Shown here is a 278-nucleotide RNA sequence from Sciurus vulgaris, a member of the family "Mason-Pfizer monkey virus packaging signal". It scores 160 bits against the family's covariance model.
[Rfam]
RNA sequence: UGGAACCCAACAGUGUGGUGUUGGAUAAGGGGGAAUUCACGAGGGAAGAGGUGUUUAAUGAUUCGAUCGAACAAAGCAGAAAUCAAUUCAAGAAGGAUCAUCGCGGGAGCCUGCCGCGCCGUUCUUAAAGGUACAGUAGCGCCUAAGUAUGGGACAAGAAUUAAGUAAGCAUAAAGUUUUUGUUAAGCAAUUAAAAGAAGCUUUAAAGACACGGGGAGUAAAGGUUAAGAGUAAUGUUAUUUUUAAAUUUUUUGACCUUAUUAAGGACACCUGUCUGU
Number, nucleotide and partner (000 for none) at each position: 001u000002g000003g000004a000005a000006c032007c031008c030009a000010a000011c000012a000013g000014u000015g000016u027017g026018g000019u000020g000021u000022u000023g000024g000025a000026u017027a016028a000029g000030g008031g007032g006033g000034a000035a000036u000037u051038c050039a000040c048041g000042a000043g000044g000045g000046a000047a000048g040049a000050g038051g037052u000053g000054u000055u000056u000057a000058a000059u000060g000061a000062u000063u000064c000065g000066a000067u000068c000069g000070a000071a000072c000073a000074a000075a000076g000077c000078a000079g000080a000081a000082a000083u000084c000085a000086a000087u000088u131089c130090a000091a000092g126093a000094a000095g000096g000097a000098u000099c121100a000101u000102c118103g117104c116105g115106g114107g000108a000109g000110c000111c000112u000113g000114c106115c105116g104117c103118g102119c000120c000121g099122u000123u000124c000125u000126u092127a000128a000129a000130g089131g088132u000133a000134c000135a000136g000137u157138a000139g155140c000141g000142c153143c152144u151145a150146a000147g000148u000149a000150u145151g144152g143153g142154a000155c139156a000157a137158g000159a000160a000161u000162u205163a204164a203165g201166u200167a000168a000169g000170c000171a000172u000173a000174a000175a000176g000177u000178u000179u000180u000181u000182g000183u000184u000185a000186a000187g000188c000189a000190a000191u000192u000193a000194a000195a000196a000197g000198a000199a000200g166201c165202u000203u164204u163205a162206a000207a000208g000209a000210c000211a000212c254213g253214g252215g251216g250217a249218g248219u247220a000221a000222a240223g000224g238225u000226u236227a235228a000229g000230a000231g000232u000233a000234a000235u227236g226237u000238u224239a000240u222241u000242u000243u000244u000245a000246a000247a219248u218249u217250u216251u215252u214253u213254g212255a000256c000257c000258u000259u000260a000261u000262u000263a278264a000265g276266g275267a274268c273269a000270c000271c000272u000273g268274u267275c266276u265277g000278u263
Rfam classes the family as a cis-regulatory element. The organism belongs to Sciurus, within Eukaryota. On this family, see Mustafa et al., Virus Res 2004: "Mutational analysis of the predicted secondary RNA structure of the Mason-Pfizer monkey virus packaging signal". The family's consensus secondary structure was predicted with PFOLD.